[Rfam]
RNA sequence: ACAUGCUCGUCUACCCUGUAGAUCGAGCUGUGUGUUUGAAACAAUCAUACACGAGCUAGACUACAAGGUGCACGAACAAACCG
Number, nucleotide and partner (000 for none) at each position: 001a000002c000003a000004u000005g000006c000007u000008c000009g000010u000011c000012u070013a069014c068015c067016c000017u000018g064019u063020a062021g061022a000023u060024c059025g000026a057027g056028c055029u054030g000031u053032g052033u051034g050035u049036u000037u000038g046039a045040a000041a000042c000043a000044a000045u039046c038047a000048u000049a035050c034051a033052c032053g031054a029055g028056c027057u026058a000059g024060a023061c021062u020063a019064c018065a000066a000067g015068g014069u013070g012071c000072a000073c000074g000075a000076a000077c000078a000079a000080a000081c000082c000083g000